[Rfam]
Notes
A member of the RNA family "Bradyrhizobiaceae sRNA BjrC174" from Microvirga mediterraneensis, 196 nucleotides long. For this family Rfam cites "Small RNAs of the Bradyrhizobium/Rhodopseudomonas lineage and their analysis" (Madhugiri et al., RNA Biol, 2012). Taxonomically the source falls in Microvirga (Bacteria, Pseudomonadota, Alphaproteobacteria, Hyphomicrobiales). The match comes from Rfam's covariance-model search (60 bits).
RNA sequence: AUCACGGGUUCUUCAGCAAAUCUUAUUCCUGCCCCAAUCGCGCCGUGAUGGAGCCGCACUGAAUGCCGUUAAUGCUCAAGUUGCCUCGACGGCCCGGCUCAUCGAACGGCUUGGACACGUCAGCCCCCCAGCCCUCUGAGUCGGACGAAGGGCCGGGCCACCUCGAGGCACAGGGCUGCCUUCAUGGCAGCCUUUU
Numbered sequence: 001a002u003c004a005c006g007g008g009u010u011c012u013u014c015a016g017c018a019a020a021u022c023u024u025a026u027u028c029c030u031g032c033c034c035c036a037a038u039c040g041c042g043c044c045g046u047g048a049u050g051g052a053g054c055c056g057c058a059c060u061g062a063a064u065g066c067c068g069u070u071a072a073u074g075c076u077c078a079a080g081u082u083g084c085c086u087c088g089a090c091g092g093c094c095c096g097g098c099u100c101a102u103c104g105a106a107c108g109g110c111u112u113g114g115a116c117a118c119g120u121c122a123g124c125c126c127c128c129c130a131g132c133c134c135u136c137u138g139a140g141u142c143g144g145a146c147g148a149a150g151g152g153c154c155g156g157g158c159c160a161c162c163u164c165g166a167g168g169c170a171c172a173g174g175g176c177u178g179c180c181u182u183c184a185u186g187g188c189a190g191c192c193u194u195u196u
Stems, first nucleotide, its partner, number of pairs: 034174002037049001039047002083169007091159010107143008123132002186192002